About this RNA: Rfam assigns this 133-nucleotide RNA sequence from Apteryx australis to the family "Small nucleolar RNA SNORA55". Rfam links the family to the GO terms RNA processing and nucleolus. The organism belongs to Apteryx, within Eukaryota. The family has 29 seed sequences and 1,476 matches in Rfam 15.1. The match comes from Rfam's covariance-model search (112 bits). From the family's description: ACA55 is a member of the H/ACA class of snoRNA that guide the sites of modification of uridines to pseudouridines.

[Rfam]
RNA sequence: GCAUCUGAAUCUUUCCCACUCCUUGCAGUGUAGUGCUGGACUGGGGACAUGUGAUGCAACAGGAAGGCAGAGGAAAUCCAGACGAGAUCCCUUUCACCACAGUGGGACUUGUCUCUACACCUUUGCGACAUCU
Numbered sequence: 001g002c003a004u005c006u007g008a009a010u011c012u013u014u015c016c017c018a019c020u021c022c023u024u025g026c027a028g029u030g031u032a033g034u035g036c037u038g039g040a041c042u043g044g045g046g047a048c049a050u051g052u053g054a055u056g057c058a059a060c061a062g063g064a065a066g067g068c069a070g071a072g073g074a075a076a077u078c079c080a081g082a083c084g085a086g087a088u089c090c091c092u093u094u095c096a097c098c099a100c101a102g103u104g105g106g107a108c109u110u111g112u113c114u115c116u117a118c119a120c121c122u123u124u125g126c127g128a129c130a131u132c133u
Stems, first nucleotide, its partner, number of pairs: 001057005013047006021039002067126006080114007094105003
Dot-bracket structure: (((((.......((((((..((...............))..)))))).....))))).........((((((.......(((((((.......(((......)))..)))))))......)))))).......